[Rfam]
RNA sequence: CUACUCCCUCUGUCCCAUAAUAUAAGAACAUUUUUUGCACUACACUAGUGUAAAAAAUGUUCUUAUAUUAUGGGACGGAGAGUAC
Numbered sequence: 001c002u003a004c005u006c007c008c009u010c011u012g013u014c015c016c017a018u019a020a021u022a023u024a025a026g027a028a029c030a031u032u033u034u035u036u037g038c039a040c041u042a043c044a045c046u047a048g049u050g051u052a053a054a055a056a057a058u059g060u061u062c063u064u065a066u067a068u069u070a071u072g073g074g075a076c077g078g079a080g081a082g083u084a085c
Stems, first nucleotide, its partner, number of pairs: 003083003008080004013075005019069023
A member of the RNA family "MIR1120/MIR1122 microRNA precursor family" from Triticum aestivum, 85 nucleotides long. The family's consensus secondary structure was predicted with RNAalifold. For this family Rfam cites "Cloning and characterization of microRNAs from wheat (Triticum aestivum L.)" (Yao et al., Genome Biol, 2007). The organism belongs to Triticum, within Eukaryota. Rfam 15.1 lists 44,765 matches to the family in 8 species.